[Rfam]
RNA sequence: AUGGGGUUUGAAUGCGCUGGGUGACGCCGGUUCGCCCGAGCGUGGGAAACGCCCCAAAGAGCC
Numbered sequence: 001a002u003g004g005g006g007u008u009u010g011a012a013u014g015c016g017c018u019g020g021g022u023g024a025c026g027c028c029g030g031u032u033c034g035c036c037c038g039a040g041c042g043u044g045g046g047a048a049a050c051g052c053c054c055c056a057a058a059g060a061g062c063c
Stems, first nucleotide, its partner, number of pairs: 002056006014043005019037002022034003
RNA: Trypanosomatid snoRNA TB8Cs3H1
Organism: Leptomonas pyrrhocoris